Rfam assigns this 102-nucleotide RNA sequence from Halanaerobium salsuginis to the family "SAM riboswitch aptamer (S box leader)".
RNA sequence: AAUUCAUCAAGAGUGGCGGAGGGACUGGCCCUGUGAAGCCCGGCAACCUACCAUUAAGGUAAGGUGCCAAAUCCUGCAUUUCAAAGAAAUGAAAGAUGAGAG
Numbered sequence: 001a002a003u004u005c006a007u008c009a010a011g012a013g014u015g016g017c018g019g020a021g022g023g024a025c026u027g028g029c030c031c032u033g034u035g036a037a038g039c040c041c042g043g044c045a046a047c048c049u050a051c052c053a054u055u056a057a058g059g060u061a062a063g064g065u066g067c068c069a070a071a072u073c074c075u076g077c078a079u080u081u082c083a084a085a086g087a088a089a090u091g092a093a094a095g096a097u098g099a100g101a102g
Stems, first nucleotide, its partner, number of pairs: 003100006013041001015040003021031003025076001027074002042068004047064002049061004072094001077091006
It scores 92 bits against the family's covariance model.